[Rfam]
RNA sequence: CGGGUUUACUCCUGGUUUUAACCGUUUCAUCUGGCCGAGGCCGGAUGUCGUUUUGGUGUCUGAUUCGAUAACGAACCGGGAGCACCAUCUGCGUAGGCUGGAGGUUUAAGACUUGCGUCGCCUACGGUCUUGGACAGCCCCCGCCAGGCAGGGACCCCAAUCUCUUCCAACCCGUGCAGACUCGCCGCACGG
Numbered sequence: 001c002g003g004g005u006u007u008a009c010u011c012c013u014g015g016u017u018u019u020a021a022c023c024g025u026u027u028c029a030u031c032u033g034g035c036c037g038a039g040g041c042c043g044g045a046u047g048u049c050g051u052u053u054u055g056g057u058g059u060c061u062g063a064u065u066c067g068a069u070a071a072c073g074a075a076c077c078g079g080g081a082g083c084a085c086c087a088u089c090u091g092c093g094u095a096g097g098c099u100g101g102a103g104g105u106u107u108a109a110g111a112c113u114u115g116c117g118u119c120g121c122c123u124a125c126g127g128u129c130u131u132g133g134a135c136a137g138c139c140c141c142c143g144c145c146a147g148g149c150a151g152g153g154a155c156c157c158c159a160a161u162c163u164c165u166u167c168c169a170a171c172c173c174g175u176g177c178a179g180a181c182u183c184g185c186c187g188c189a190c191g192g
Stems, first nucleotide, its partner, number of pairs: 002157006011148004023050002028047008054087006060079003064075003091144003096139004104135010173191005179186001